[Rfam]
RNA: MIR5269 microRNA precursor family
RNA sequence: UUGGGUGAAACUCACGUGGGUCUCACACUUUGGAAAUGGACCCCGCAUAAAGUGAUGAGACCCACAUGAGUUUCACCCAA
Numbered sequence: 001u002u003g004g005g006u007g008a009a010a011c012u013c014a015c016g017u018g019g020g021u022c023u024c025a026c027a028c029u030u031u032g033g034a035a036a037u038g039g040a041c042c043c044c045g046c047a048u049a050a051a052g053u054g055a056u057g058a059g060a061c062c063c064a065c066a067u068g069a070g071u072u073u074c075a076c077c078c079a080a
Stems, first nucleotide, its partner, number of pairs: 001080014016065003023058003026054007